RNA sequence: CUUUGAGGAUGUUAGACGAAUAACGCGACGUCGUGUCGCAAUGUCUAACUGACUCACAUCCUGUGAG
Numbered sequence: 001c002u003u004u005g006a007g008g009a010u011g012u013u014a015g016a017c018g019a020a021u022a023a024c025g026c027g028a029c030g031u032c033g034u035g036u037c038g039c040a041a042u043g044u045c046u047a048a049c050u051g052a053c054u055c056a057c058a059u060c061c062u063g064u065g066a067g
Base pairs, nucleotide, nucleotide: 011049012048013047014046015045016044017043025039026038027037028036029035053067054066055065056064057063
Shown here is a 67-nucleotide RNA sequence from Amphibacillus marinus, a member of the family "Bacillaceae-1 RNA". Pairs were carried over by alignment from the consensus structure, which is taken from published work. The organism belongs to Amphibacillus, within Bacteria. By type it is a small RNA.